Shown here is a 102-nucleotide RNA from Lottiidibacillus patelloidae, a member of the family "Purine riboswitch aptamer". Riboswitches are metabolite binding domains within certain messenger RNAs that serve as precision sensors for their corresponding targets.

RNA sequence: UAACAUAAAUAUAUUUUCCUUCGUAUAUCCUCGAUAAUAUGGUUCGAGAGUCUCUACCGGGUCACCGAAAAUGACCUGACUAUGAAGGCGGAUGUUCUAUAC
Numbered sequence: 001u002a003a004c005a006u007a008a009a010u011a012u013a014u015u016u017u018c019c020u021u022c023g024u025a026u027a028u029c030c031u032c033g034a035u036a037a038u039a040u041g042g043u044u045c046g047a048g049a050g051u052c053u054c055u056a057c058c059g060g061g062u063c064a065c066c067g068a069a070a071a072u073g074a075c076c077u078g079a080c081u082a083u084g085a086a087g088g089c090g091g092a093u094g095u096u097c098u099a100u101a102c
Stems, first nucleotide, its partner, number of pairs: 018088008030048005058078007